[Rfam]
Annotation:
The record is a 355-nucleotide part of an RNA from Haloquadratum walsbyi, which matches "Archaeal large subunit ribosomal RNA" in Rfam.
RNA sequence: UCACAGUAGCAGCAAUAGUCGGGUGUGACCCCCGACGGCCUAACGAGCAAGGGUUCCUCGGCACUGCUAAUCAGCCGAGGGUUAGCCGGUCCUAAGUCUGACCGUAAUUCGACUCAGACAAACAGGGAAACUGGUUAAUAUUCCAGUGCCGUCGUGUCUUAUCGAACGCUUUCGGAAACAGUGAACGGGGCCAUCGCCCCGUCGAAUCAUGGAAUCUCGUGGAUGCCGUAACGGCACGAAGCGGGAGAAUCAUGAGACCGCGCAAGUCACUGGUACCAAGAGCCCGUGAAACAAACACACGACGUCCGUACCGAGAUCCGACACAGGUGCUCAGGCAGCGAAAGCCAUGGCCCGU
Numbered sequence: 001u002c003a004c005a006g007u008a009g010c011a012g013c014a015a016u017a018g019u020c021g022g023g024u025g026u027g028a029c030c031c032c033c034g035a036c037g038g039c040c041u042a043a044c045g046a047g048c049a050a051g052g053g054u055u056c057c058u059c060g061g062c063a064c065u066g067c068u069a070a071u072c073a074g075c076c077g078a079g080g081g082u083u084a085g086c087c088g089g090u091c092c093u094a095a096g097u098c099u100g101a102c103c104g105u106a107a108u109u110c111g112a113c114u115c116a117g118a119c120a121a122a123c124a125g126g127g128a129a130a131c132u133g134g135u136u137a138a139u140a141u142u143c144c145a146g147u148g149c150c151g152u153c154g155u156g157u158c159u160u161a162u163c164g165a166a167c168g169c170u171u172u173c174g175g176a177a178a179c180a181g182u183g184a185a186c187g188g189g190g191c192c193a194u195c196g197c198c199c200c201g202u203c204g205a206a207u208c209a210u211g212g213a214a215u216c217u218c219g220u221g222g223a224u225g226c227c228g229u230a231a232c233g234g235c236a237c238g239a240a241g242c243g244g245g246a247g248a249a250u251c252a253u254g255a256g257a258c259c260g261c262g263c264a265a266g267u268c269a270c271u272g273g274u275a276c277c278a279a280g281a282g283c284c285c286g287u288g289a290a291a292c293a294a295a296c297a298c299a300c301g302a303c304g305u306c307c308g309u310a311c312c313g314a315g316a317u318c319c320g321a322c323a324c325a326g327g328u329g330c331u332c333a334g335g336c337a338g339c340g341a342a343a344g345c346c347a348u349g350g351c352c353c354g355u
Stems, first nucleotide, its partner, number of pairs: 018036006037352004045332004051312002056080006065073002087308003091126002096119006103111002130147005150304008162295001168283005174277002179272005185202005207255004216245005225235003261266001318327002334346003